[Rfam]
RNA sequence: AAGUAGAAAUAAGUAGGUAAGGGAAGUCGGCAAAAUAGAUCCGUAACUUCGGGAAAAGGAUUGGCUCUGAGGACAUUAGAAUAGAGAAGAAAAAGAAAAUGAUCGAAAAUAAAGGUACAAGUGAUACUUUAGAAAAUCCUUUUUUUUUAGUAUUCUUCUACUUUCUUUUUCUUUCGUGUUCUUUUUCUCUCCCUCUAUUCGCCGUCAUAUAUAUCUCUUUUCGUUUCGGCGAUUGGCGUACAUAUGACACUUAUAAUGUUAACUCAGAACUGAAACGGACAAGGGGAAUCCGACUGUUUAAUUAAAACAUAGCAUUGUGACAAGCCAUAACUGGUAUUAACACAAUGUGAUUUCUGCCCAGUGCUUUGAAUGUCAACUUGAUGAAAUUCAAUCAAGCGCAGGUAAACGGCGGGAGUAACUAUGACUCUCUUAAGGUAGCCAAAUGCCUCGUCAUCUAAUUAGUGACGCGCAUGAAUGGAUUAACGAGAUUCCCACUGUCCCUACUUGCUAUCUAGCGAAACCACAGCCAAGGGAACGGGCUUGGCCAA
Numbered sequence: 001a002a003g004u005a006g007a008a009a010u011a012a013g014u015a016g017g018u019a020a021g022g023g024a025a026g027u028c029g030g031c032a033a034a035a036u037a038g039a040u041c042c043g044u045a046a047c048u049u050c051g052g053g054a055a056a057a058g059g060a061u062u063g064g065c066u067c068u069g070a071g072g073a074c075a076u077u078a079g080a081a082u083a084g085a086g087a088a089g090a091a092a093a094a095g096a097a098a099a100u101g102a103u104c105g106a107a108a109a110u111a112a113a114g115g116u117a118c119a120a121g122u123g124a125u126a127c128u129u130u131a132g133a134a135a136a137u138c139c140u141u142u143u144u145u146u147u148u149a150g151u152a153u154u155c156u157u158c159u160a161c162u163u164u165c166u167u168u169u170u171c172u173u174u175c176g177u178g179u180u181c182u183u184u185u186u187c188u189c190u191c192c193c194u195c196u197a198u199u200c201g202c203c204g205u206c207a208u209a210u211a212u213a214u215c216u217c218u219u220u221u222c223g224u225u226u227c228g229g230c231g232a233u234u235g236g237c238g239u240a241c242a243u244a245u246g247a248c249a250c251u252u253a254u255a256a257u258g259u260u261a262a263c264u265c266a267g268a269a270c271u272g273a274a275a276c277g278g279a280c281a282a283g284g285g286g287a288a289u290c291c292g293a294c295u296g297u298u299u300a301a302u303u304a305a306a307a308c309a310u311a312g313c314a315u316u317g318u319g320a321c322a323a324g325c326c327a328u329a330a331c332u333g334g335u336a337u338u339a340a341c342a343c344a345a346u347g348u349g350a351u352u353u354c355u356g357c358c359c360a361g362u363g364c365u366u367u368g369a370a371u372g373u374c375a376a377c378u379u380g381a382u383g384a385a386a387u388u389c390a391a392u393c394a395a396g397c398g399c400a401g402g403u404a405a406a407c408g409g410c411g412g413g414a415g416u417a418a419c420u421a422u423g424a425c426u427c428u429c430u431u432a433a434g435g436u437a438g439c440c441a442a443a444u445g446c447c448u449c450g451u452c453a454u455c456u457a458a459u460u461a462g463u464g465a466c467g468c469g470c471a472u473g474a475a476u477g478g479a480u481u482a483a484c485g486a487g488a489u490u491c492c493c494a495c496u497g498u499c500c501c502u503a504c505u506u507g508c509u510a511u512c513u514a515g516c517g518a519a520a521c522c523a524c525a526g527c528c529a530a531g532g533g534a535a536c537g538g539g540c541u542u543g544g545c546c547a548a
Stems, first nucleotide, its partner, number of pairs: 004514004012509008021500003038062005047052001063271002066268006072260005078251001079200003083196004092185004096180002099177004105171005112164006119157003123153001272276001284493007291485002295309003312348008322337001324335004352479003356410003361407002363403004368399001371398003378391004411429006430434001450466005527544005

This 548-nucleotide part of an RNA from Plasmodium knowlesi belongs to the Rfam family "Eukaryotic large subunit ribosomal RNA".
Pairs were carried over by alignment from the consensus structure, which is taken from published work.
NCBI's taxonomy places the organism under Eukaryota, Aconoidasida, Plasmodiidae, Plasmodium, Plasmodium knowlesi.